[Rfam]
RNA sequence: CUCUUAUCUAGAGUGGUGGAGGGACUGGCCCGAUGAAACCCGGCAACCACCAGACAACAUUCGUCUGGAGAGGUGCCAAUUCCUGCAGGUUCGACAACAUUCAGCGCAUGCUUUUUGCACGACGCUUGAACAAUCGAACUUGAGAGAUGAGGG
Numbered sequence: 001c002u003c004u005u006a007u008c009u010a011g012a013g014u015g016g017u018g019g020a021g022g023g024a025c026u027g028g029c030c031c032g033a034u035g036a037a038a039c040c041c042g043g044c045a046a047c048c049a050c051c052a053g054a055c056a057a058c059a060u061u062c063g064u065c066u067g068g069a070g071a072g073g074u075g076c077c078a079a080u081u082c083c084u085g086c087a088g089g090u091u092c093g094a095c096a097a098c099a100u101u102c103a104g105c106g107c108a109u110g111c112u113u114u115u116u117g118c119a120c121g122a123c124g125c126u127u128g129a130a131c132a133a134u135c136g137a138a139c140u141u142g143a144g145a146g147a148u149g150a151g152g153g
Stems, first nucleotide, its partner, number of pairs: 001153008013041001015040003021031003025085001027083002042077004047073002050068006081145001086142009
RNA: SAM riboswitch aptamer (S box leader)
Organism: Paenalicyclobacillus ferrooxydans